[Rfam]
The family of this 83-nucleotide RNA from Spermophilus dauricus is "mir-105 microRNA precursor family". The match comes from Rfam's covariance-model search (81 bits). The source organism's lineage runs through Eukaryota, Euarchontoglires, Glires, Rodentia and Spermophilus.
RNA sequence: AAAGCACCAAGUGGCUCAAUGCUCAGACUCCUGUGGUGGCUGCUUAUGCACCACGGAUGUUUGAGCAUGUGCUAUGGUGUCUA
Numbered sequence: 001a002a003a004g005c006a007c008c009a010a011g012u013g014g015c016u017c018a019a020u021g022c023u024c025a026g027a028c029u030c031c032u033g034u035g036g037u038g039g040c041u042g043c044u045u046a047u048g049c050a051c052c053a054c055g056g057a058u059g060u061u062u063g064a065g066c067a068u069g070u071g072c073u074a075u076g077g078u079g080u081c082u083a
Stems, first nucleotide, its partner, number of pairs: 004080006012074003016071001019068010029057003036054004041050003